RNA sequence: CAGCAUAUUUCCAAGGGCUAUGGCCAGCUGUGGCCAUGGGAUCUCCAACUGCAUGCGAGAGCAACCCAAAGACACUUUGACAGCACAGAUAGCAUAAAGCCUACGUGCAGCUGCCACGCACCUUUCCUAGAACU
Numbered sequence: 001c002a003g004c005a006u007a008u009u010u011c012c013a014a015g016g017g018c019u020a021u022g023g024c025c026a027g028c029u030g031u032g033g034c035c036a037u038g039g040g041a042u043c044u045c046c047a048a049c050u051g052c053a054u055g056c057g058a059g060a061g062c063a064a065c066c067c068a069a070a071g072a073c074a075c076u077u078u079g080a081c082a083g084c085a086c087a088g089a090u091a092g093c094a095u096a097a098a099g100c101c102u103a104c105g106u107g108c109a110g111c112u113g114c115c116a117c118g119c120a121c122c123u124u125u126c127c128u129a130g131a132a133c134u
Stems, first nucleotide, its partner, number of pairs: 011039002016035007070125003083114002086107002088100001
RNA: Small nucleolar RNA SNORA44
Organism: Canis lupus